mir-574 microRNA precursor family: a 79-nucleotide RNA from Cnephaeus nilssonii. The family is grouped with related families in Rfam's "mir-574 microRNA precursor clan". Gene Ontology terms of the family: miRNA-mediated post-transcriptional gene silencing and RISC complex.

RNA sequence: AGGCCCGGAGAGAGAAGCAGGGUCUGAUCCGCAGCCUCUGUGGCAGCUGUUGAUCAUCCCUUGCCUCUCUUUCUCUCCA
Numbered sequence: 001a002g003g004c005c006c007g008g009a010g011a012g013a014g015a016a017g018c019a020g021g022g023u024c025u026g027a028u029c030c031g032c033a034g035c036c037u038c039u040g041u042g043g044c045a046g047c048u049g050u051u052g053a054u055c056a057u058c059c060c061u062u063g064c065c066u067c068u069c070u071u072u073c074u075c076u077c078c079a
Stems, first nucleotide, its partner, number of pairs: 008073008017064004022059001025056005032049004